The record is a 54-nucleotide RNA from Gadus morhua, which matches "UnaL2 LINE 3' element" in Rfam. A search with the family's covariance model found it, with a score of 56 bits. Lineage of the source: Eukaryota > Eumetazoa > Ctenosquamata > Gadoidei > Gadus.
RNA sequence: UGUAUUAACCGAUGUAAGUCGCUUUGGAUAAAAGCGUCUGCUGAAUGCCCCUGA
Dot-bracket structure: ............((((...((((((.....))))))..))).)...........